[Rfam]
RNA sequence: GGAGAGCUGCUCUCCGAAGCGGGCACGCAGCGUGCACGCUGCAAACCCCUGGCAGGUGCAGAGCGUUUAACUCUGCUUGUGCCAAUCGGGUAGGAAUGCAAACAGCCAAAGGG
Numbered sequence: 001g002g003a004g005a006g007c008u009g010c011u012c013u014c015c016g017a018a019g020c021g022g023g024c025a026c027g028c029a030g031c032g033u034g035c036a037c038g039c040u041g042c043a044a045a046c047c048c049c050u051g052g053c054a055g056g057u058g059c060a061g062a063g064c065g066u067u068u069a070a071c072u073c074u075g076c077u078u079g080u081g082c083c084a085a086u087c088g089g090g091u092a093g094g095a096a097u098g099c100a101a102a103c104a105g106c107c108a109a110a111g112g113g
Base pairs, nucleotide, nucleotide: 001015002014003013004012005011016042018040019039020038021037023035024034025033026032049094050093052091053090055083056082058080059079060078062074063073065071103112
This 113-nucleotide RNA from Apteryx owenii belongs to the Rfam family "Group II catalytic intron D1-D4-2". Group II introns are found in rRNA, tRNA and mRNA of organelles in fungi, plants and protists, and also in mRNA in bacteria. The literature on the family includes a 2001 paper in Trends Genet by Bonen and Vogel, "The ins and outs of group II introns". The source organism's lineage runs through Eukaryota, Deuterostomia, Craniata, Euteleostomi and Apteryx. The pairing is the family consensus, mapped onto this sequence. Its family is annotated with Group II intron splicing in the Gene Ontology.